RNA sequence: AAUGCAAGUGAUGAUAAACUAGACAGGGACAUCAGUUACUCCUUCGGAGGAUGAUGACUAAGUCUAAAUGGGAAUCUCUCUGAUGCUUG
Numbered sequence: 001a002a003u004g005c006a007a008g009u010g011a012u013g014a015u016a017a018a019c020u021a022g023a024c025a026g027g028g029a030c031a032u033c034a035g036u037u038a039c040u041c042c043u044u045c046g047g048a049g050g051a052u053g054a055u056g057a058c059u060a061a062g063u064c065u066a067a068a069u070g071g072g073a074a075u076c077u078c079u080c081u082g083a084u085g086c087u088u089g
Stems, first nucleotide, its partner, number of pairs: 002088001004086003

Source information: The record is an 89-nucleotide RNA from Ricinus communis, which matches "Small nucleolar RNA R44/J54/Z268 family" in Rfam. Its Rfam clan is "SNORD74 clan". The source organism's lineage runs through Eukaryota, Tracheophyta, Gunneridae, Acalypheae and Ricinus. Gene Ontology terms of the family: RNA processing and nucleolus. Rfam classes the family as a C/D-box small nucleolar RNA. Pairs were carried over by alignment from the consensus structure, which was predicted with PFOLD.